RNA sequence: AUAAACUUUUUUCGAAAGAAAAAAAAUCUGUUCUUAUCAGUUUAAUAUCUGAUAUGUCCCCUAUUUGGGGACCAUAUAUUAAAUUGAUUUUUGGAUCUGGGAGAUGGAAUAGGGGCUUGCUCCGUCCACUCCAUGCAUUGACCUGGUAUUGCAGUAUCUCCAGGAAUGGUGCACCCCCU
Dot-bracket structure: ..................................((((((........)))))).((((((.....))))))...........................((((..((....((((....)))).))..))))..((((((.(((((.............)))))..)))))).......